RNA sequence: CGGAAAAGACCUGAAUAUCCGGAAGGGGAGAUUCACGUCUUACCAUUUGCUCAACUUUUAAAUGAUUUGAGAUGGCCUCUCGCCCUAUUCAGUGUAACAGCUGUGAUAGUGGGUUUGGUCGCUCUCAUUUGAAUAGCAAGGGUAAUGGUGGACCGCACUUCUCCCUUAGUAGGACGUUGUGACCUGUCAAUAAAUAUUCUAAGUAUUUGGCUAUUAUGUCUGUUCUAAGUUAUACCGUUAAGGUAUUUUCUUUAAAACAGUUUUAGCCGUUUUAUAUACUGGAUAAAAUUGACAGUAACGAAUUAUGGUGUUGAGCCACAUGAAAUUAUAUAUAUGUAAAAAUAUAUAUAAUGGAAAGUGUCCUAAAAUAUGGCUGUUUGCAAGUGGGUUGGUAAAAAAUAGUUUCAAUUCGGAUUUUUAACCGGUUAACUAUUCCGCCUACUGUUGGUAAACUGUUCCUAGGACUGUGCUUAUUAUCACCGGUCGGCAACGAUUCAGGUUCAGGCUCUUAUCCGACCCGUCUUGAAACACGG
Numbered sequence: 001c002g003g004a005a006a007a008g009a010c011c012u013g014a015a016u017a018u019c020c021g022g023a024a025g026g027g028g029a030g031a032u033u034c035a036c037g038u039c040u041u042a043c044c045a046u047u048u049g050c051u052c053a054a055c056u057u058u059u060a061a062a063u064g065a066u067u068u069g070a071g072a073u074g075g076c077c078u079c080u081c082g083c084c085c086u087a088u089u090c091a092g093u094g095u096a097a098c099a100g101c102u103g104u105g106a107u108a109g110u111g112g113g114u115u116u117g118g119u120c121g122c123u124c125u126c127a128u129u130u131g132a133a134u135a136g137c138a139a140g141g142g143u144a145a146u147g148g149u150g151g152a153c154c155g156c157a158c159u160u161c162u163c164c165c166u167u168a169g170u171a172g173g174a175c176g177u178u179g180u181g182a183c184c185u186g187u188c189a190a191u192a193a194a195u196a197u198u199c200u201a202a203g204u205a206u207u208u209g210g211c212u213a214u215u216a217u218g219u220c221u222g223u224u225c226u227a228a229g230u231u232a233u234a235c236c237g238u239u240a241a242g243g244u245a246u247u248u249u250c251u252u253u254a255a256a257a258c259a260g261u262u263u264u265a266g267c268c269g270u271u272u273u274a275u276a277u278a279c280u281g282g283a284u285a286a287a288a289u290u291g292a293c294a295g296u297a298a299c300g301a302a303u304u305a306u307g308g309u310g311u312u313g314a315g316c317c318a319c320a321u322g323a324a325a326u327u328a329u330a331u332a333u334a335u336g337u338a339a340a341a342a343u344a345u346a347u348a349u350a351a352u353g354g355a356a357a358g359u360g361u362c363c364u365a366a367a368a369u370a371u372g373g374c375u376g377u378u379u380g381c382a383a384g385u386g387g388g389u390u391g392g393u394a395a396a397a398a399a400u401a402g403u404u405u406c407a408a409u410u411c412g413g414a415u416u417u418u419u420a421a422c423c424g425g426u427u428a429a430c431u432a433u434u435c436c437g438c439c440u441a442c443u444g445u446u447g448g449u450a451a452a453c454u455g456u457u458c459c460u461a462g463g464a465c466u467g468u469g470c471u472u473a474u475u476a477u478c479a480c481c482g483g484u485c486g487g488c489a490a491c492g493a494u495u496c497a498g499g500u501u502c503a504g505g506c507u508c509u510u511a512u513c514c515g516a517c518c519c520g521u522c523u524u525g526a527a528a529c530a531c532g533g
Stems, first nucleotide, its partner, number of pairs: 001515004006510004011505002017238001020237003024233001026231001243496001245494003518533004
RNA: Eukaryotic large subunit ribosomal RNA, nucleotides 439 to 971
Organism: Rhodnius prolixus